This 136-nucleotide RNA sequence from Roseiflexus castenholzii belongs to the Rfam family "c-di-AMP riboswitch aptamer (ydaO/yuaA leader)". Rfam describes the family as follows. This family represents a conserved RNA structure found upstream of the ydaO and yuaA genes in Bacillus subtilis and related genes in other bacteria.
Nucleotides: 136
Base pairs, nucleotide, nucleotide: 012121013120014119018033019032020031021030022029034117035116036115037114038113039112044055056102057101058100064077065076066075067074080096081095082094083093
Number, partner (000 for none) and nucleotide at each position: 001000g002000a003000c004000c005000a006000a007000c008000a009000a010000a011000a012121g013120c014119c015000g016000a017000a018033g019032c020031u021030u022029c023000a024000a025000u026000g027000g028000c029022g030021a031020a032019g033018c034117g035116c036115g037114g038113g039112g040000g041000a042000a043000g044055c045000g046000u047000g048000u049000a050000u051000g052000c053000a054000g055044g056102g057101g058100g059000u060000g061000a062000a063000c064077g065076u066075c067074g068000c069000a070000u071000u072000g073000g074067c075066g076065a077064c078000c079000a080096g081095g082094g083093c084000g085000u086000c087000c088000u089000u090000u091000c092000g093083g094082c095081c096080c097000g098000a099000a100058c101057c102056c103000g104000u105000c106000a107000g108000c109000g110000u111000a112039c113038c114037u115036c116035g117034c118000a119014g120013g121012c122000a123000u124000a125000c126000c127000g128000a129000a130000a131000g132000g133000c134000u135000c136000g

Rfam 15.1 lists 7,607 matches to the family in 2,262 species. It scores 77 bits against the family's covariance model.